[Rfam]
This 131-nucleotide RNA sequence from Chloebia gouldiae belongs to the Rfam family "Small nucleolar RNA SNORA3/SNORA45 family".
NCBI's taxonomy places the organism under Eukaryota, Deuterostomia, Dipnotetrapodomorpha, Archelosauria, Chloebia.
Rfam classes the family as an H/ACA-box small nucleolar RNA.
From the family's description: The members of this family belong to the H/ACA class of snoRNAs which are thought to guide the sites of modification of uridines to pseudouridines.
The family's consensus secondary structure was predicted with RNAalifold.
RNA sequence: CCCGAGACCAUAGAGUCACAACUGGCCCUGCCUGUGGUCCUGGUUUGCUGGAGUCCUCGGACAGGAACCACUGACCUCCGUUCACUGGCUGUGCCCUGCUGGCGCAGUCAGCCACCGGGUUAGUGACAGCA
Numbered sequence: 001c002c003c004g005a006g007a008c009c010a011u012a013g014a015g016u017c018a019c020a021a022c023u024g025g026c027c028c029u030g031c032c033u034g035u036g037g038u039c040c041u042g043g044u045u046u047g048c049u050g051g052a053g054u055c056c057u058c059g060g061a062c063a064g065g066a067a068c069c070a071c072u073g074a075c076c077u078c079c080g081u082u083c084a085c086u087g088g089c090u091g092u093g094c095c096c097u098g099c100u101g102g103c104g105c106a107g108u109c110a111g112c113c114a115c116c117g118g119g120u121u122a123g124u125g126a127c128a129g130c131a
Stems, first nucleotide, its partner, number of pairs: 002060005007054002011052001014049002017047002020044001022042001025039001027037002071123007085111004090106006